[Rfam]
The record is a 346-nucleotide RNA sequence from Saccharomyces mikatae, which matches "Small nucleolar RNA snR42" in Rfam.
The literature on the family includes a 1998 paper in RNA by Watkins et al., "Cbf5p, a potential pseudouridine synthase, and Nhp2p, a putative RNA-binding protein, are present together with Gar1p in all H BOX/ACA-motif snoRNPs and constitute a common bipartite structure".
The family is grouped with related families in Rfam's "SNORA27 clan".
RNA sequence: UAAAAAACUUGUGAUGCUCUUGGGGUCCAUUGUUUACGGUUGAUAGAAGCCAGUUUUGUCAUUUUGAUGAAAUUUCAUCCUAUCCUUAGUUCCAAAACCGCUCCAAUGACUUCCUUUUUAUUGAUUUUUCCUUUUCUUUCCUUGGUUUAGUUUAUUUAUGAUAAGUUAUUGCAAGAAAGGAUAGGAAAAAGACUGAUGAGUGUCGUAGAUAAAUCUUCGAUUCCGAGUAGUCUGACUAUUGGUAUCGAGGUAAUCCAUCUUUAAAACCAUCGCCGUUAGAGGUUGCUUCUGAUUCAUUCGGUUAAGCGACCCAUGAAAUGGUGAUGACCUGAGGUAUGGAACAUCU
Number, nucleotide and partner (000 for none) at each position: 001u000002a000003a000004a000005a000006a000007a000008c000009u000010u000011g000012u000013g204014a203015u202016g201017c200018u199019c198020u000021u000022g114023g113024g112025g110026u109027c108028c000029a107030u106031u105032g104033u000034u000035u000036a000037c100038g099039g098040u097041u096042g000043a083044u082045a081046g080047a000048a000049g000050c000051c000052a074053g073054u072055u071056u070057u000058g068059u067060c066061a000062u000063u000064u000065u000066g060067a059068u058069g000070a056071a055072a054073u053074u052075u000076c000077a000078u000079c000080c046081u045082a044083u043084c000085c000086u000087u000088a000089g000090u000091u000092c000093c000094a000095a000096a041097a040098c039099c038100g037101c000102u000103c000104c032105a031106a030107u029108g027109a026110c025111u000112u024113c023114c022115u000116u000117u000118u000119u000120a000121u000122u000123g000124a000125u189126u188127u187128u186129u184130c000131c000132u000133u000134u181135u180136c179137u178138u000139u000140c000141c175142u174143u173144g172145g000146u000147u000148u168149a167150g166151u165152u164153u163154a162155u161156u000157u000158a000159u000160g000161a155162u154163a153164a152165g151166u150167u149168a148169u000170u000171g000172c144173a143174a142175g141176a000177a000178a137179g136180g135181a134182u000183a000184g129185g000186a128187a127188a126189a125190a000191g000192a000193c000194u000195g000196a000197u000198g019199a018200g017201u016202g015203u014204c013205g000206u000207a000208g000209a000210u000211a000212a000213a000214u000215c250216u249217u248218c247219g246220a245221u244222u000223c242224c241225g000226a240227g239228u238229a237230g236231u000232c000233u000234g000235a000236c230237u229238a228239u227240u226241g224242g223243u000244a221245u220246c219247g218248a217249g216250g215251u000252a000253a000254u340255c339256c338257a337258u336259c334260u333261u000262u000263a000264a000265a000266a000267c000268c326269a325270u324271c323272g322273c321274c320275g319276u318277u317278a000279g000280a000281g311282g310283u309284u308285g307286c306287u305288u304289c301290u300291g299292a298293u000294u000295c000296a000297u000298u292299c291300g290301g289302u000303u000304a288305a287306g286307c285308g284309a283310c282311c281312c000313a000314u000315g000316a000317a277318a276319u275320g274321g273322u272323g271324a270325u269326g268327a000328c000329c000330u000331g000332a000333g260334g259335u000336a258337u257338g256339g255340a254341a000342c000343a000344u000345c000346u000
The source organism's lineage runs through Eukaryota, Dikarya, Ascomycota, saccharomyceta and Saccharomyces mikatae.